[Rfam]
RNA sequence: GGGCCUCUAGCUCAGCUGGUAGAGCAGCGGACUUUUAAUCCGCGGGUCGUGGGUUCGAGCCCCACGGGGCCCA
Numbered sequence: 001g002g003g004c005c006u007c008u009a010g011c012u013c014a015g016c017u018g019g020u021a022g023a024g025c026a027g028c029g030g031a032c033u034u035u036u037a038a039u040c041c042g043c044g045g046g047u048c049g050u051g052g053g054u055u056c057g058a059g060c061c062c063c064a065c066g067g068g069g070c071c072c073a
Stems, first nucleotide, its partner, number of pairs: 001072007010025004027043005049065005
Rfam assigns this 73-nucleotide RNA from Sediminivirga luteola to the family "tRNA". It scores 70 bits against the family's covariance model. It is annotated as a transfer RNA. About the family: Transfer RNA (tRNA) molecules are approximately 80 nucleotides in length.